[Rfam]
RNA sequence: GCGUGUUGGCAGUGUGGUUAGCUGGUUGUGUUAUGCCUUCAAACACGACCGCUAUCGACACUGCAGUUACGA
Numbered sequence: 001g002c003g004u005g006u007u008g009g010c011a012g013u014g015u016g017g018u019u020a021g022c023u024g025g026u027u028g029u030g031u032u033a034u035g036c037c038u039u040c041a042a043a044c045a046c047g048a049c050c051g052c053u054a055u056c057g058a059c060a061c062u063g064c065a066g067u068u069a070c071g072a
Stems, first nucleotide, its partner, number of pairs: 002071004008064001011062005017056001019054003023051008